[Rfam]
Notes
Rfam assigns this 59-nucleotide RNA sequence to the family "msiK RNA".

RNA sequence: GGAGUAACCUCCAUCCAACGGAUCGUCGGGCACGUACCUGCCCGGAAGGAGAGCUAGAA
Numbered sequence: 001g002g003a004g005u006a007a008c009c010u011c012c013a014u015c016c017a018a019c020g021g022a023u024c025g026u027c028g029g030g031c032a033c034g035u036a037c038c039u040g041c042c043c044g045g046a047a048g049g050a051g052a053g054c055u056a057g058a059a
Stems, first nucleotide, its partner, number of pairs: 009051004014046002027044006